Annotation:
ylbH leader: a 117-nucleotide RNA from Melghirimyces profundicolus. Pairs were carried over by alignment from the consensus structure. It scores 86 bits against the family's covariance model.
[Rfam]
RNA sequence: CUAAAAAAGACCCGUGGAAGGAUCCACGGGUCCAUGGGAUCCGCCAAGAGCGGAUCCUGAAUGGGAGAGGAGAAACCGGAGGAAGAGCUUAUGGGGAAACGUAAGUCUUCUCCGCGG
Numbered sequence: 001c002u003a004a005a006a007a008a009g010a011c012c013c014g015u016g017g018a019a020g021g022a023u024c025c026a027c028g029g030g031u032c033c034a035u036g037g038g039a040u041c042c043g044c045c046a047a048g049a050g051c052g053g054a055u056c057c058u059g060a061a062u063g064g065g066a067g068a069g070g071a072g073a074a075a076c077c078g079g080a081g082g083a084a085g086a087g088c089u090u091a092u093g094g095g096g097a098a099a100c101g102u103a104a105g106u107c108u109u110c111u112c113c114g115c116g117g
Stems, first nucleotide, its partner, number of pairs: 011030008031065005040054005077114004082110004087106005
Rfam describes the family as follows. This family is a putative regulatory RNA structure that is found upstream of the ylbH gene in B. subtilis and related low GC Gram-positive bacteria. For this family Rfam cites "New RNA motifs suggest an expanded scope for riboswitches in bacterial genetic control" (Barrick et al., Proc Natl Acad Sci U S A, 2004). Its family is annotated with regulation of gene expression in the Gene Ontology. The source organism's lineage runs through Bacteria, Bacillota, Bacilli, Caryophanales and Melghirimyces. It is annotated as a cis-regulatory leader.